[Rfam]
RNA sequence: GAAGGCGGCGACGCCCCCCCGACUUGAGACCGGCGCACACGCCGGUCUGCCGCCUUCGCACCCCAUUCUCGAUGUGCACACCUUCAAGGCGGCUCCCCCCAGAGCCGCCC
Numbered sequence: 001g002a003a004g005g006c007g008g009c010g011a012c013g014c015c016c017c018c019c020c021g022a023c024u025u026g027a028g029a030c031c032g033g034c035g036c037a038c039a040c041g042c043c044g045g046u047c048u049g050c051c052g053c054c055u056u057c058g059c060a061c062c063c064c065a066u067u068c069u070c071g072a073u074g075u076g077c078a079c080a081c082c083u084u085c086a087a088g089g090c091g092g093c094u095c096c097c098c099c100c101a102g103a104g105c106c107g108c109c110c
Base pairs, nucleotide, nucleotide: 001057002056003055004054005053006052007051008050009049010048012021013020028047029046030045031044032043033042034041088109089108090107091106092105093104094103095102